MIR7996 microRNA precursor family: a 190-nucleotide RNA sequence from Solanum tuberosum. NCBI's taxonomy places the organism under Eukaryota, eudicotyledons, asterids, Solanales, Solanum. Gene Ontology terms of the family: miRNA-mediated post-transcriptional gene silencing and RISC complex. Rfam 15.1 lists 439 matches to the family in 2 species. Rfam's curators put it in the seed alignment.
RNA sequence: AUGUGGUACAUAUGAAAUUUGAAAUUAAUCAAUUUUUUAGUUUGUUUUUAUAUAUUUUAAGUUGCUAAUUAUUUGUAUUUAGAGUAUGUUUUACGUAAAUAUAUUAGAAAUCACAAUAAUUAACAAGUUAAUAUAAAAAAAAACUUAUAAAAAAUUCAUUGACUUUUGAAAUUUCAUUUGUAUCACAUAA
Numbered sequence: 001a002u003g004u005g006g007u008a009c010a011u012a013u014g015a016a017a018u019u020u021g022a023a024a025u026u027a028a029u030c031a032a033u034u035u036u037u038u039a040g041u042u043u044g045u046u047u048u049u050a051u052a053u054a055u056u057u058u059a060a061g062u063u064g065c066u067a068a069u070u071a072u073u074u075g076u077a078u079u080u081a082g083a084g085u086a087u088g089u090u091u092u093a094c095g096u097a098a099a100u101a102u103a104u105u106a107g108a109a110a111u112c113a114c115a116a117u118a119a120u121u122a123a124c125a126a127g128u129u130a131a132u133a134u135a136a137a138a139a140a141a142a143a144c145u146u147a148u149a150a151a152a153a154a155u156u157c158a159u160u161g162a163c164u165u166u167u168g169a170a171a172u173u174u175c176a177u178u179u180g181u182a183u184c185a186c187a188u189a190a
Base pairs, nucleotide, nucleotide: 001188002187003186004185005184006183007182008181009180010179012177013176014175015174016173017172018171019170020169022167023166024165025162026161027160028159029158031156032155033154034153035152036151037150038149039148044144045143046142047141048140049139053135054134055133057131058130059129060128062126063125064124066122067121068120069119070118071117072116073115075114076113077111078110079109080108083105084104085103086102087101088100089099090098091097
Dot-bracket structure: ((((((((((.(((((((((.((((((((.(((((((((....((((((...(((.((((.(((.((((((((.((((((..(((((((((.....)))))))))..)))).)))))))))).))).)))).)))...))))))...))))))))).)))))..))).))))))))).))))))))))..